[Rfam]
Record summary
A member of the RNA family "Bacterial small subunit ribosomal RNA" from Ilyobacter polytropus, 593 nucleotides of a longer RNA. Rfam links the family to the GO terms structural constituent of ribosome and ribosome. NCBI's taxonomy places the organism under Bacteria, Fusobacteriia, Fusobacteriales, Ilyobacter, Ilyobacter polytropus.
RNA sequence: UGACGGGGACCCGCACAAGCGGUGGAGCAUGUGGUUUAAUUCGACGCAACGCGAGGAACCUUACCAGCCCUUGACAUCCCAAGAACUAGGCAGAGAUGCUUAGGUGCCUUUUCGGAGGAACUUGGUGACAGGUGGUGCAUGGCUGUCGUCAGCUCGUGUCGUGAGAUGUUGGGUUAAGUCCCGCAACGAGCGCAACCCCUAUCGUAUGUUACCAUCAUUAAGUUGGGGACUCAUGCGAGACUGCCUGCGACGAGCAGGAGGAAGGUGGGGAUGACGUCAAGUCAUCAUGCCCCUUAUGGGCUGGGCUACACACGUGCUACAAUGGACAAUACAGAGGGUAGCGAUCCCGCGAGGGGGAGCCAAUCUCAGAAAGUUGUUCUUAGUUCGGAUCGCAGUCUGCAACUCGACUGCGUGAAGUUGGAAUCGCUAGUAAUCGCGAAUCAGCAAUGUCGCGGUGAAUACGUUCUCGGGUCUUGUACACACCGCCCGUCACACCACGAGAGUUGGUUGCACCUGAAGUAGCAGGCCUAACCCGUUUACGGGAGGGAUGUUCCUAAGGUGUGAUUAGCGAUUGGGGUGAAGUCGUAACAAGG
Numbered sequence: 001u002g003a004c005g006g007g008g009a010c011c012c013g014c015a016c017a018a019g020c021g022g023u024g025g026a027g028c029a030u031g032u033g034g035u036u037u038a039a040u041u042c043g044a045c046g047c048a049a050c051g052c053g054a055g056g057a058a059c060c061u062u063a064c065c066a067g068c069c070c071u072u073g074a075c076a077u078c079c080c081a082a083g084a085a086c087u088a089g090g091c092a093g094a095g096a097u098g099c100u101u102a103g104g105u106g107c108c109u110u111u112u113c114g115g116a117g118g119a120a121c122u123u124g125g126u127g128a129c130a131g132g133u134g135g136u137g138c139a140u141g142g143c144u145g146u147c148g149u150c151a152g153c154u155c156g157u158g159u160c161g162u163g164a165g166a167u168g169u170u171g172g173g174u175u176a177a178g179u180c181c182c183g184c185a186a187c188g189a190g191c192g193c194a195a196c197c198c199c200u201a202u203c204g205u206a207u208g209u210u211a212c213c214a215u216c217a218u219u220a221a222g223u224u225g226g227g228g229a230c231u232c233a234u235g236c237g238a239g240a241c242u243g244c245c246u247g248c249g250a251c252g253a254g255c256a257g258g259a260g261g262a263a264g265g266u267g268g269g270g271a272u273g274a275c276g277u278c279a280a281g282u283c284a285u286c287a288u289g290c291c292c293c294u295u296a297u298g299g300g301c302u303g304g305g306c307u308a309c310a311c312a313c314g315u316g317c318u319a320c321a322a323u324g325g326a327c328a329a330u331a332c333a334g335a336g337g338g339u340a341g342c343g344a345u346c347c348c349g350c351g352a353g354g355g356g357g358a359g360c361c362a363a364u365c366u367c368a369g370a371a372a373g374u375u376g377u378u379c380u381u382a383g384u385u386c387g388g389a390u391c392g393c394a395g396u397c398u399g400c401a402a403c404u405c406g407a408c409u410g411c412g413u414g415a416a417g418u419u420g421g422a423a424u425c426g427c428u429a430g431u432a433a434u435c436g437c438g439a440a441u442c443a444g445c446a447a448u449g450u451c452g453c454g455g456u457g458a459a460u461a462c463g464u465u466c467u468c469g470g471g472u473c474u475u476g477u478a479c480a481c482a483c484c485g486c487c488c489g490u491c492a493c494a495c496c497a498c499g500a501g502a503g504u505u506g507g508u509u510g511c512a513c514c515u516g517a518a519g520u521a522g523c524a525g526g527c528c529u530a531a532c533c534c535g536u537u538u539a540c541g542g543g544a545g546g547g548a549u550g551u552u553c554c555u556a557a558g559g560u561g562u563g564a565u566u567a568g569c570g571a572u573u574g575g576g577g578u579g580a581a582g583u584c585g586u587a588a589c590a591a592g593g
Stems, first nucleotide, its partner, number of pairs: 001480002003477003007474007015464002019427005024320001026318008034309002040055004064304007077128002079125005086103007105120001107118004131293002134291004140287002142282003145278001147276002152191006158167003170183004197270004202238007212227002216225002241261002244258005324379007336367003341360002346355003386417001391412007433456007483592001485589001488585002493579004498574003503569012519554001521552004527547003532543004
The family is grouped with related families in Rfam's "SSU clan".